[Rfam]
RNA sequence: CAUUGGUCCUCCCGCAACACUAACCUGUGAACUCGGCCAGGCCCGGAAGGGAGCAACCGCAGCAGGCGACGUGUGUGCCGGGAUGUGGCUGGUGGGG
Numbered sequence: 001c002a003u004u005g006g007u008c009c010u011c012c013c014g015c016a017a018c019a020c021u022a023a024c025c026u027g028u029g030a031a032c033u034c035g036g037c038c039a040g041g042c043c044c045g046g047a048a049g050g051g052a053g054c055a056a057c058c059g060c061a062g063c064a065g066g067c068g069a070c071g072u073g074u075g076u077g078c079c080g081g082g083a084u085g086u087g088g089c090u091g092g093u094g095g096g097g
Base pairs, nucleotide, nucleotide: 004091005090006089007088008087010083011082012081013080014079015075017074018073019072020071024066025065026064027063028062034059035058036057042051043050044049
Dot-bracket structure: ...(((((.((((((.((((...(((((.....(((.....(((....))).....)))..)))))....)))))...)))))...)))))......

Source information
Shown here is a 97-nucleotide RNA sequence from Photobacterium proteolyticum, a member of the family "Bacterial small signal recognition particle RNA". It is annotated as a non-coding RNA gene. Rfam's curators write: The signal recognition particle (SRP) is a universally conserved ribonucleoprotein involved in the co-translational targeting of proteins to membranes. It scores 73 bits against the family's covariance model. The literature on the family includes a 2002 paper in Nucleic Acids Res by Regalia et al., "Prediction of signal recognition particle RNA genes". The organism belongs to Photobacterium, within Bacteria.